[Rfam]
Background: The family of this 114-nucleotide sequence from Trifolium pratense is "MIR2593 microRNA precursor family".
RNA sequence: UUAUAAGAAACAACUCAUUUUUAGAUUCAUUAAGUAACAGAUGUGUCUGGUCUAUAAUAUAGACCAGAUACAUCAGUUAUUUAAUGAACCUAAAAAGUCAACUGUUUCUUAUAA
Numbered sequence: 001u002u003a004u005a006a007g008a009a010a011c012a013a014c015u016c017a018u019u020u021u022u023a024g025a026u027u028c029a030u031u032a033a034g035u036a037a038c039a040g041a042u043g044u045g046u047c048u049g050g051u052c053u054a055u056a057a058u059a060u061a062g063a064c065c066a067g068a069u070a071c072a073u074c075a076g077u078u079a080u081u082u083a084a085u086g087a088a089c090c091u092a093a094a095a096a097g098u099c100a101a102c103u104g105u106u107u108c109u110u111a112u113a114a
Base pairs, nucleotide, nucleotide: 002113003112004111005110006109007108009106010105011104012103015100017098018096019095020094021093022092023091024090026088027087028086029085030084031083032082033081034080035079036078037077038076040074041073042072043071048066049065050064051063
Gene Ontology terms of the family: RISC complex and miRNA-mediated post-transcriptional gene silencing. The family has 7 seed sequences and 1,262 matches in Rfam 15.1. The organism belongs to Trifolium, within Eukaryota. It scores 96 bits against the family's covariance model.